The record is a 171-nucleotide RNA sequence from Anseranas semipalmata, which matches "Small Cajal body specific RNA 16" in Rfam. On this family, see Darzacq et al., EMBO J 2002: "Cajal body-specific small nuclear RNAs: a novel class of 2'-O-methylation and pseudouridylation guide RNAs". It is annotated as a small Cajal body RNA. Pairs were carried over by alignment from the consensus structure, which was predicted with RNAfold.
[Rfam]
RNA sequence: GGGGGCCUGGGUACGGCUGCUGGCGGCUGCGUCUCAGCCUGGUGCCUGCCGGCCUCCCCCGUGCCCCAGAGCAAGCCCCUGGCGGGCUCCCCGCCGGGGUCCUCCUGUGCAGUAACAGGUGUGAGCAUCCACGCAGCGUUUCGAUGGUCAUGUAUGAUACUGCACACAGUG
Number, nucleotide and partner (000 for none) at each position: 001g000002g000003g066004g065005g064006c063007c000008u061009g060010g059011g000012u000013a000014c000015g054016g053017c052018u051019g049020c048021u000022g046023g045024c044025g039026g038027c037028u036029g035030c000031g000032u000033c000034u000035c029036a028037g027038c026039c025040u000041g000042g000043u000044g024045c023046c022047u000048g020049c019050c000051g018052g017053c016054c015055u000056c000057c000058c000059c010060c009061g008062u000063g006064c005065c004066c003067c000068a000069g000070a000071g000072c000073a000074a000075g000076c000077c000078c098079c097080u096081g095082g094083c093084g092085g091086g000087c000088u000089c000090c000091c085092c084093g083094c082095c081096g080097g079098g078099g000100u000101c000102c000103u000104c000105c000106u166107g165108u164109g163110c162111a161112g160113u159114a158115a000116c156117a155118g000119g000120u000121g000122u150123g149124a148125g000126c146127a145128u144129c143130c000131a000132c000133g140134c000135a000136g000137c000138g000139u000140u133141u000142c000143g129144a128145u127146g126147g000148u124149c123150a122151u000152g000153u000154a000155u117156g116157a000158u114159a113160c112161u111162g110163c109164a108165c107166a106167c000168a000169g000170u000171g000